A member of the RNA family "Ruegeria trans44 sRNA" from Rhodobium orientis, 263 nucleotides long. For this family Rfam cites "Experimental Identification of Small Non-Coding RNAs in the Model Marine Bacterium Ruegeria pomeroyi DSS-3" (Rivers et al., Front Microbiol, 2016). The base pairs follow the family's consensus structure, which was predicted with RNAfold. The family's RNA type in Rfam is small RNA. The organism belongs to Rhodobium, within Bacteria. A search with the family's covariance model found it, with a score of 142 bits.
Nucleotides: 263
Stems, first nucleotide, its partner, number of pairs: 001037010012026006055196002058193003064188006071181004077175004081170001083167002086164004091159004097153001101150001103148001110142002113138003121131003198250003202246001204244001216240003223235005251262003
Number, partner (000 for none) and nucleotide at each position: 001037c002036a003035u004034c005033g006032c007031g008030a009029u010028g011000c012026u013025c014024c015023u016022c017021a018000g019000a020000u021017u022016g023015a024014g025013g026012a027000g028010u029009a030008u031007c032006g033005u034004g035003a036002u037001g038000a039000g040000a041000a042000u043000g044000c045000u046000a047000u048000c049000g050000a051000a052000g053000c054000g055196c056195c057000a058193g059192g060191u061000g062000a063000a064188g065187g066186a067185g068184c069183u070000u071181g072180u073179c074178c075000u076000c077175u078174a079173c080172u081170c082000g083167c084166c085000g086164c087163a088162a089161c090000a091159c092158a093157u094156u095000g096000c097153g098000a099000g100000g101150c102000u103148g104000g105000a106000a107000g108000c109000a110142g111141c112000c113138g114137g115136c116000a117000a118000a119000u120000u121131c122130c123129c124000c125000a126000a127000g128000c129123g130122g131121g132000u133000a134000c135000a136115g137114c138113u139000c140000g141111g142110c143000a144000g145000c146000a147000a148103c149000c150101g151000a152000g153097u154000c155000g156094g157093a158092u159091g160000g161089g162088u163087u164086g165000a166084g167083g168000a169000g170081g171000a172080a173079g174078u175077g176000c177000u178074g179073g180072a181071c182000u183069g184068g185067c186066u187065u188064c189000g190000a191060g192059c193058c194000a195056g196055g197000a198250u199249c200248g201000a202246c203000g204244c205000c206000a207000g208000a209000g210000a211000u212000g213000c214000a215000u216240c217239g218238c219000a220000a221000g222000a223235c224234a225233c226232u227231c228000c229000u230000u231227g232226a233225g234224u235223g236000g237000a238218g239217c240216g241000a242000g243000a244204g245000a246202g247000c248200c249199g250198g251262c252261c253260g254000g255000a256000a257000c258000g259000c260253c261252g262251g263000c